[Rfam]
RNA sequence: CCAUGAAAUUUGUACCGCGCACAUCACUUAGAUAGGCUGUCGAAAGUCACGUAGGGG
Numbered sequence: 001c002c003a004u005g006a007a008a009u010u011u012g013u014a015c016c017g018c019g020c021a022c023a024u025c026a027c028u029u030a031g032a033u034a035g036g037c038u039g040u041c042g043a044a045a046g047u048c049a050c051g052u053a054g055g056g057g
Stems, first nucleotide, its partner, number of pairs: 019037002023033003
A member of the RNA family "Plastid-ndhJ 3UTR RNA" from Papaver somniferum, 57 nucleotides long. The literature on the family includes a 2023 paper in Plant Commun by Richter et al., "Retrograde signaling in plants: A critical review focusing on the GUN pathway and beyond". It is annotated as a cis-regulatory element. About the family: Plastid ndhJ is a non-coding RNA (ncRNA) present in plastids. The family's consensus secondary structure was predicted with LocARNA. The family has 50 seed sequences and 869 matches in Rfam 15.1.